Rfam assigns this 147-nucleotide RNA sequence from Sorghum bicolor to the family "small nucleolar RNA snoR134".
On this family, see Chen and Wu, Nucleic Acids Res 2009: "Mining small RNA sequencing data: a new approach to identify small nucleolar RNAs in Arabidopsis".
RNA sequence: CUGCAAGGUGCUAUCCCCGGGCUUGUCGGAUUUGUACCAUUGAGGAAGGAAGGCCCCAAUGCUUGUGCUAGAAUCUAGCAUGCCAUUAAGUGUCGCAGGCUUAGAAAAAUCUUGUGAUAGGUCUGUGUCAAAGCAAUGGAUACAAAU
Numbered sequence: 001c002u003g004c005a006a007g008g009u010g011c012u013a014u015c016c017c018c019g020g021g022c023u024u025g026u027c028g029g030a031u032u033u034g035u036a037c038c039a040u041u042g043a044g045g046a047a048g049g050a051a052g053g054c055c056c057c058a059a060u061g062c063u064u065g066u067g068c069u070a071g072a073a074u075c076u077a078g079c080a081u082g083c084c085a086u087u088a089a090g091u092g093u094c095g096c097a098g099g100c101u102u103a104g105a106a107a108a109a110u111c112u113u114g115u116g117a118u119a120g121g122u123c124u125g126u127g128u129c130a131a132a133g134c135a136a137u138g139g140a141u142a143c144a145a146a147u
Stems, first nucleotide, its partner, number of pairs: 003068003007064002010062002019056004023051001024049001026046002083139005091130002094127006101117003
About this RNA: By type it is an H/ACA-box small nucleolar RNA. Gene Ontology terms of the family: RNA processing and nucleolus.